[Rfam]
RNA sequence: CGCAUGCCUGAACACUUGCUGUCUAAGCCACUAGCUGAGAACUGCGAUUCUCCCUGAACGCUUAGGGGAAAGUCCCCGGACCCCGAGCAGAGAUGCUCUGUCUAACCGGCAGCGGCGCGCCUGCAGCGCGGAUACCCUGCUGAGAAGCUCCCCUGAGGGGCCGAGCAGACCGCGCAGUCCGCCUUUGUCCCAGUCCAAGAAAUGCAGGUAGUAAUGAUCUAACAGAACGGGGCUCAUUCUCAGGCAUGU
Dot-bracket structure: .((((((((((..((((((..(((((((........(((((......))))).......)))))))....[[.[[[[........((((....))))((((..........)))).(((...((.(((........((((......((((.......))))...))))....))).)).))).....................)))))).(.......).........]]]]]].....))))))))))
Numbered sequence: 001c002g003c004a005u006g007c008c009u010g011a012a013c014a015c016u017u018g019c020u021g022u023c024u025a026a027g028c029c030a031c032u033a034g035c036u037g038a039g040a041a042c043u044g045c046g047a048u049u050c051u052c053c054c055u056g057a058a059c060g061c062u063u064a065g066g067g068g069a070a071a072g073u074c075c076c077c078g079g080a081c082c083c084c085g086a087g088c089a090g091a092g093a094u095g096c097u098c099u100g101u102c103u104a105a106c107c108g109g110c111a112g113c114g115g116c117g118c119g120c121c122u123g124c125a126g127c128g129c130g131g132a133u134a135c136c137c138u139g140c141u142g143a144g145a146a147g148c149u150c151c152c153c154u155g156a157g158g159g160g161c162c163g164a165g166c167a168g169a170c171c172g173c174g175c176a177g178u179c180c181g182c183c184u185u186u187g188u189c190c191c192a193g194u195c196c197a198a199g200a201a202a203u204g205c206a207g208g209u210a211g212u213a214a215u216g217a218u219c220u221a222a223c224a225g226a227a228c229g230g231g232g233c234u235c236a237u238u239c240u241c242a243g244g245c246a247u248g249u
Stems, first nucleotide, its partner, number of pairs: 002249010014209006022066007037052005071234002074232004086097004098115004117182003123178002126175003137168004147161004211219001

The family of this 249-nucleotide sequence from Astyanax mexicanus is "RNase MRP". Rfam classes the family as a ribozyme. About the family: RNase MRP is an enzymatically active ribonucleoprotein with two distinct roles in eukaryotes. In mitochondria it plays a direct role in the initiation of mitochondrial DNA replication. In the nucleus it is involved in precursor rRNA processing, where it cleaves the internal transcribed spacer 1 between 18S and 5.8S rRNAs. The organism belongs to Astyanax, within Eukaryota. A search with the family's covariance model found it, with a score of 126 bits.